[Rfam]
RNA sequence: GCGAGCUGUAAUGUCACACUUGGGGCACACGUGCAGAGUACAAAAGAUCAUUCCACUUAUACAAAGUAACUUAUUUUGACUCGUAAGUGUGGAUGAUCUCUGUUACUCCCUCUGUCCCGGGAAGGUCUGAGUAGGGCCAGCGUGUGUCGGUGGCACGUCACUCUCUAGACGGGAGCGUCGCCUAUAGCGACGGCGGGAACACCAGAAACGCGGGCUGUGGGGCCUUGUUUAGGACUCUGUUUCUGCAGACGAAGCUUCGCUCCUCAAGCCCAUGGAAGUUUCCCGCGGCCGGCGUUUUUAGUAUAAUCUGUGACACGGUGCUUAGCCGUAACUCAAUUCAGACUAGUCUUCGGCUCGC
Numbered sequence: 001g002c003g004a005g006c007u008g009u010a011a012u013g014u015c016a017c018a019c020u021u022g023g024g025g026c027a028c029a030c031g032u033g034c035a036g037a038g039u040a041c042a043a044a045a046g047a048u049c050a051u052u053c054c055a056c057u058u059a060u061a062c063a064a065a066g067u068a069a070c071u072u073a074u075u076u077u078g079a080c081u082c083g084u085a086a087g088u089g090u091g092g093a094u095g096a097u098c099u100c101u102g103u104u105a106c107u108c109c110c111u112c113u114g115u116c117c118c119g120g121g122a123a124g125g126u127c128u129g130a131g132u133a134g135g136g137c138c139a140g141c142g143u144g145u146g147u148c149g150g151u152g153g154c155a156c157g158u159c160a161c162u163c164u165c166u167a168g169a170c171g172g173g174a175g176c177g178u179c180g181c182c183u184a185u186a187g188c189g190a191c192g193g194c195g196g197g198a199a200c201a202c203c204a205g206a207a208a209c210g211c212g213g214g215c216u217g218u219g220g221g222g223c224c225u226u227g228u229u230u231a232g233g234a235c236u237c238u239g240u241u242u243c244u245g246c247a248g249a250c251g252a253a254g255c256u257u258c259g260c261u262c263c264u265c266a267a268g269c270c271c272a273u274g275g276a277a278g279u280u281u282c283c284c285g286c287g288g289c290c291g292g293c294g295u296u297u298u299u300a301g302u303a304u305a306a307u308c309u310g311u312g313a314c315a316c317g318g319u320g321c322u323u324a325g326c327c328g329u330a331a332c333u334c335a336a337u338u339c340a341g342a343c344u345a346g347u348c349u350u351c352g353g354c355u356c357g358c
Base pairs, nucleotide, nucleotide: 001358002357003356004355008351010349013314014313015312016311017310018309022118023117024116025115026114036108037107038106039105040104041102127341128340129339130338131337135290136289137288138287161175162174163173164172165171176192177191178190179189180188181187193286194285195284196283197282198281199280212271213270214269215268216267315329316328317327318326319325

Rfam assigns this 358-nucleotide RNA sequence from Manduca sexta to the family "Nuclear RNase P". Rfam links the family to the GO terms tRNA processing, ribonuclease P complex and ribonuclease P activity. The family's RNA type in Rfam is ribozyme. Rfam describes the family as follows. Ribonuclease P (RNase P) is a ubiquitous endoribonuclease, found in archaea, bacteria and eukarya as well as chloroplasts and mitochondria. Its best characterised activity is the generation of mature 5'-ends of tRNAs by cleaving the 5'-leader elements of precursor-tRNAs. Cellular RNase Ps are ribonucleoproteins. RNA from bacterial RNase Ps retains its catalytic activity in the absence of the protein subunit, i.e. it is a ribozyme.